[Rfam]
RNA: RNase MRP
RNA sequence: GGAUGUUCUGAAGACCUGCUCGCUAGGCCACGCACGGAGGACACUGGUUCCUCAUGGGCCACGCGCCCGCCUAGGGGAAAGUCCCCGGACCACCGGCAGAGAGUGCCGGGCGCUAUGCGCGCCCCGGCCCGCUCCCACCUCACACAACCCUCCGCCGAGACGCCCCCGGGCUGAGCGGGUGAGUAGGUGCGGGCACUCGUCACGGCCACAGACACGCAGGUAGCGCACAGCCGGUGCGCUAACAGAACGGGGCUCACUCUCAGGCCAUC
Numbered sequence: 001g002g003a004u005g006u007u008c009u010g011a012a013g014a015c016c017u018g019c020u021c022g023c024u025a026g027g028c029c030a031c032g033c034a035c036g037g038a039g040g041a042c043a044c045u046g047g048u049u050c051c052u053c054a055u056g057g058g059c060c061a062c063g064c065g066c067c068c069g070c071c072u073a074g075g076g077g078a079a080a081g082u083c084c085c086c087g088g089a090c091c092a093c094c095g096g097c098a099g100a101g102a103g104u105g106c107c108g109g110g111c112g113c114u115a116u117g118c119g120c121g122c123c124c125c126g127g128c129c130c131g132c133u134c135c136c137a138c139c140u141c142a143c144a145c146a147a148c149c150c151u152c153c154g155c156c157g158a159g160a161c162g163c164c165c166c167c168g169g170g171c172u173g174a175g176c177g178g179g180u181g182a183g184u185a186g187g188u189g190c191g192g193g194c195a196c197u198c199g200u201c202a203c204g205g206c207c208a209c210a211g212a213c214a215c216g217c218a219g220g221u222a223g224c225g226c227a228c229a230g231c232c233g234g235u236g237c238g239c240u241a242a243c244a245g246a247a248c249g250g251g252g253c254u255c256a257c258u259c260u261c262a263g264g265c266c267a268u269c
Stems, first nucleotide, its partner, number of pairs: 002269004007264005014221006023074006037053005080254002083252004095107004108124006126194001128192001131190002134187002141183001143181001152178004162171003223239006